[Rfam]
Nucleotides: 075
Stems, first nucleotide, its partner, number of pairs: 001073005009062005022057003031049002035046002
Number, partner (000 for none) and nucleotide at each position: 001073c002072c003071c004070a005069u006000g007000g008000a009062g010061a011060g012059u013058a014000c015000a016000u017000a018000a019000c020000a021000a022057u023056g024055u025000g026000a027000g028000u029000a030000c031049u032048g033000u034000u035046u036045g037000g038000a039000g040000a041000u042000a043000u044000c045036c046035a047000u048032c049031a050000u051000g052000a053000a054000a055024g056023c057022a058013u059012a060011c061010u062009c063000g064000a065000u066000g067000a068000a069005g070004u071003g072002g073001g074000a075000a
A member of the RNA family "RAGATH-18 RNA", 75 nucleotides long. About the family: Actinobacteria, Firmicutes, Fusobacteria, Thermotogae (1 example). The family's RNA type in Rfam is small RNA.